Overview: The family of this 62-nucleotide sequence from Ceyx cyanopectus is "Small nucleolar RNA Z39".
[Rfam]
RNA sequence: GCAUGUGUGAUGUGAACAAAACGGUAUGAGAAAUCGUGAUACUGUAAACGCUUUCUGAUGUG
Numbered sequence: 001g002c003a004u005g006u007g008u009g010a011u012g013u014g015a016a017c018a019a020a021a022c023g024g025u026a027u028g029a030g031a032a033a034u035c036g037u038g039a040u041a042c043u044g045u046a047a048a049c050g051c052u053u054u055c056u057g058a059u060g061u062g
Stems, first nucleotide, its partner, number of pairs: 002062004012054001015052001017050001022044006
On this family, see Chen et al., Nucleic Acids Res 2003: "The high diversity of snoRNAs in plants: identification and comparative study of 120 snoRNA genes from Oryza sativa".